RNA sequence: UUGUCCUGGCCUUUGCUUUUUCAGUUUCCCUGUACUCAGUUCUAACAGGGGAAUCUGGCAGGCCACACAGCAAUCUCCCUCUCCGUUUAGGAGGGCUGUCCUAAGAAUAGGGCUGGCUCUUAAAGGCACGAGAGGACAGU
Dot-bracket structure: .((.((((.((............(((.((((((...........)))))).)))..)))))).))............((((((.((((..(((((((((((((....)))))).)))))))..))))..)))))).....
Numbered sequence: 001u002u003g004u005c006c007u008g009g010c011c012u013u014u015g016c017u018u019u020u021u022c023a024g025u026u027u028c029c030c031u032g033u034a035c036u037c038a039g040u041u042c043u044a045a046c047a048g049g050g051g052a053a054u055c056u057g058g059c060a061g062g063c064c065a066c067a068c069a070g071c072a073a074u075c076u077c078c079c080u081c082u083c084c085g086u087u088u089a090g091g092a093g094g095g096c097u098g099u100c101c102u103a104a105g106a107a108u109a110g111g112g113c114u115g116g117c118u119c120u121u122a123a124a125g126g127c128a129c130g131a132g133a134g135g136a137c138a139g140u
Stems, first nucleotide, its partner, number of pairs: 002065002005062004010058002024054003028050006078135006085127004091121007098113006
Description
This 140-nucleotide RNA sequence from Lipotes vexillifer belongs to the Rfam family "Small Cajal body specific RNA 11". Rfam classes the family as a small Cajal body RNA. The organism belongs to Lipotes, within Eukaryota. For this family Rfam cites "Cajal body-specific small nuclear RNAs: a novel class of 2'-O-methylation and pseudouridylation guide RNAs" (Darzacq et al., EMBO J, 2002). The family has 24 seed sequences and 853 matches in Rfam 15.1. Rfam's curators write: scaRNAs are a specific class of small nuclear RNAs which localise to the Cajal bodies and guide the modification of RNA polymerase II transcribed spliceosomal RNAs U1, U2, U4, U5 and U12.